RNA: Plastid-rps12 3UTR RNA
RNA sequence: GGUUUCUGUUGGUGAAAAUCCAAUCAUCCAAUUUUAUUUGAAAUGAGAAGCAAUUCUCCAUUGGUAGCAAAUAGUUAUCCAUUAAGCGGAGGAAAUGCUAUU
Numbered sequence: 001g002g003u004u005u006c007u008g009u010u011g012g013u014g015a016a017a018a019u020c021c022a023a024u025c026a027u028c029c030a031a032u033u034u035u036a037u038u039u040g041a042a043a044u045g046a047g048a049a050g051c052a053a054u055u056c057u058c059c060a061u062u063g064g065u066a067g068c069a070a071a072u073a074g075u076u077a078u079c080c081a082u083u084a085a086g087c088g089g090a091g092g093a094a095a096u097g098c099u100a101u102u
Stems, first nucleotide, its partner, number of pairs: 009023004056091004060082002063079006